[Rfam]
Record summary: Rfam assigns this 72-nucleotide sequence from Arthrobacter subterraneus to the family "tRNA". Pairs were carried over by alignment from the consensus structure, which is taken from published work.

RNA sequence: UGGGGUAUGGUGUAAUUGGCAACACAUUGGUUUCUGGUACCAACAUUCUAGGUUCGAGUCCUGGUACCCCAG
Numbered sequence: 001u002g003g004g005g006u007a008u009g010g011u012g013u014a015a016u017u018g019g020c021a022a023c024a025c026a027u028u029g030g031u032u033u034c035u036g037g038u039a040c041c042a043a044c045a046u047u048c049u050a051g052g053u054u055c056g057a058g059u060c061c062u063g064g065u066a067c068c069c070c071a072g
Base pairs, nucleotide, nucleotide: 001071002070003069004068005067006066007065010025011024012023013022027043028042029041030040031039048064049063050062051061052060